[Rfam]
RNA sequence: GGCAGUAGCAAAUAUUCAAAUGAGAACUUUGAAGACUGAAGUGGAGAAGGGUUCCAUGUGAACAGCAAUUGGACAUGGGUUAGCCGGUCCUAAGCGACAGCUUAACUGCGUGUAAGGGCGGCUUUACCGCCGCCUCUGCGCGAAAGGGAAUCAGGAUAAUAUUCCUGAGCCAGGACGUGGAUACUGUACGGUAACGUGAGUGAACUCCUCGACGCAGGCGGGUGCCCCGGGAAGCGUUUUCUUUGCUUCUUAACAGCCUCCUUUACAUACCCUGGAAUCAGAUUAUCUGGAGAUAGGGUUGACUGGCUGGUAAAGCUUCCUGGCUUUCAGGAAGUCCGGUGCGCUCCCGACUGCCCCUGAAAAGAGGAGGGAAAGUCGUUAUUUGCACCCCUGGCCGUACCAUUAACCGCAUCAGGUCUCCAAGGUUAGCAGCCUCUGGUCGA
Numbered sequence: 001g002g003c004a005g006u007a008g009c010a011a012a013u014a015u016u017c018a019a020a021u022g023a024g025a026a027c028u029u030u031g032a033a034g035a036c037u038g039a040a041g042u043g044g045a046g047a048a049g050g051g052u053u054c055c056a057u058g059u060g061a062a063c064a065g066c067a068a069u070u071g072g073a074c075a076u077g078g079g080u081u082a083g084c085c086g087g088u089c090c091u092a093a094g095c096g097a098c099a100g101c102u103u104a105a106c107u108g109c110g111u112g113u114a115a116g117g118g119c120g121g122c123u124u125u126a127c128c129g130c131c132g133c134c135u136c137u138g139c140g141c142g143a144a145a146g147g148g149a150a151u152c153a154g155g156a157u158a159a160u161a162u163u164c165c166u167g168a169g170c171c172a173g174g175a176c177g178u179g180g181a182u183a184c185u186g187u188a189c190g191g192u193a194a195c196g197u198g199a200g201u202g203a204a205c206u207c208c209u210c211g212a213c214g215c216a217g218g219c220g221g222g223u224g225c226c227c228c229g230g231g232a233a234g235c236g237u238u239u240u241c242u243u244u245g246c247u248u249c250u251u252a253a254c255a256g257c258c259u260c261c262u263u264u265a266c267a268u269a270c271c272c273u274g275g276a277a278u279c280a281g282a283u284u285a286u287c288u289g290g291a292g293a294u295a296g297g298g299u300u301g302a303c304u305g306g307c308u309g310g311u312a313a314a315g316c317u318u319c320c321u322g323g324c325u326u327u328c329a330g331g332a333a334g335u336c337c338g339g340u341g342c343g344c345u346c347c348c349g350a351c352u353g354c355c356c357c358u359g360a361a362a363a364g365a366g367g368a369g370g371g372a373a374a375g376u377c378g379u380u381a382u383u384u385g386c387a388c389c390c391c392u393g394g395c396c397g398u399a400c401c402a403u404u405a406a407c408c409g410c411a412u413c414a415g416g417u418c419u420c421c422a423a424g425g426u427u428a429g430c431a432g433c434c435u436c437u438g439g440u441c442g443a
Base pairs, nucleotide, nucleotide: 015033016032017031018030019029020028034441035440036439037438043421044420045419046418049401050400054078055077056076057075058074059073063071064070085397086396087395089147090146094141095140097111098110100109101108120134121133122132151168152167153166154165155164171393172392173391174390177388178387179386181382182381187198188197189196190195205369206368207367208366209365210364214354215353216352217351219349220348221347222346224344225343227339228338229337230250231249232248233247234246235245254309255308256307257306258305269299270298271297272296273295274294278290279289280288281287316334317333318332319331320330321329322328407416408415423435424434425433426432
RNA: Eukaryotic large subunit ribosomal RNA, nucleotides 1552 to 1994